[Rfam]
RNA: Plastid-rps18 3UTR RNA
RNA sequence: UGCAAACAUUUUACGAUUAAGAAUCCAUUCCUUCUUGUACAGAUCCUGUAUUAAUUU
Numbered sequence: 001u002g003c004a005a006a007c008a009u010u011u012u013a014c015g016a017u018u019a020a021g022a023a024u025c026c027a028u029u030c031c032u033u034c035u036u037g038u039a040c041a042g043a044u045c046c047u048g049u050a051u052u053a054a055u056u057u
Stems, first nucleotide, its partner, number of pairs: 018037006
Dot-bracket structure: .................((((((........))))))....................